[Rfam]
Shown here is a 212-nucleotide RNA from Enterococcus cecorum, a member of the family "HNH endonuclease-associated RNA and ORF (HEARO) RNA". For this family Rfam cites "Exceptional structured noncoding RNAs revealed by bacterial metagenome analysis" (Weinberg et al., Nature, 2009). The family's RNA type in Rfam is non-coding RNA gene.
RNA sequence: GUAAACUACCACAUACCCAAGGAUAUGUGGCUUCCAUUAAAUAGUUUACCAGACUCAGUAUAUAGAAAUAUAUACUACGAUAGUUAAGUCAUGACACCUUUGGUUGACGCAACAGACCAAUGCUCUGUCAUAUACGUUUAAGUUAGGUUGGAGUAAGCAAAGCCUUGUGACGUAUAUCUAAAAAGCUUAAUUAUCAUUGUCGAGUUGAAGAC
Numbered sequence: 001g002u003a004a005a006c007u008a009c010c011a012c013a014u015a016c017c018c019a020a021g022g023a024u025a026u027g028u029g030g031c032u033u034c035c036a037u038u039a040a041a042u043a044g045u046u047u048a049c050c051a052g053a054c055u056c057a058g059u060a061u062a063u064a065g066a067a068a069u070a071u072a073u074a075c076u077a078c079g080a081u082a083g084u085u086a087a088g089u090c091a092u093g094a095c096a097c098c099u100u101u102g103g104u105u106g107a108c109g110c111a112a113c114a115g116a117c118c119a120a121u122g123c124u125c126u127g128u129c130a131u132a133u134a135c136g137u138u139u140a141a142g143u144u145a146g147g148u149u150g151g152a153g154u155a156a157g158c159a160a161a162g163c164c165u166u167g168u169g170a171c172g173u174a175u176a177u178c179u180a181a182a183a184a185g186c187u188u189a190a191u192u193a194u195c196a197u198u199g200u201c202g203a204g205u206u207g208a209a210g211a212c
Stems, first nucleotide, its partner, number of pairs: 001049008010030001012027002016022002052201003057076007079195011094128002098122001100120006110207004130177009142168002145165005